[Rfam]
RNA sequence: GGGCCGGCCGUAGCUCAGCGGUUACUUCUGUCAACGAAAGGCUUCUUUCGGUUAAAUCUCUUCGGAGGUUCGAGCCCCCGCGGGCGCUUUCCGGUCCUUUU
Numbered sequence: 001g002g003g004c005c006g007g008c009c010g011u012a013g014c015u016c017a018g019c020g021g022u023u024a025c026u027u028c029u030g031u032c033a034a035c036g037a038a039a040g041g042c043u044u045c046u047u048u049c050g051g052u053u054a055a056a057u058c059u060c061u062u063c064g065g066a067g068g069u070u071c072g073a074g075c076c077c078c079c080g081c082g083g084g085c086g087c088u089u090u091c092c093g094g095u096c097c098u099u100u101u
Stems, first nucleotide, its partner, number of pairs: 002096006013085004018081004026074003030070001
A member of the RNA family "Vault RNA" from Ornithorhynchus anatinus, 101 nucleotides long. Rfam classes the family as a non-coding RNA gene. The base pairs follow the family's consensus structure, which is taken from published work. The source organism's lineage runs through Eukaryota, Opisthokonta, Gnathostomata, Teleostomi and Ornithorhynchus. The literature on the family includes a 2009 paper in Mol Biol Evol by Stadler et al., "Evolution of Vault RNAs". This family of RNAs are found as part of the enigmatic vault ribonucleoprotein complex.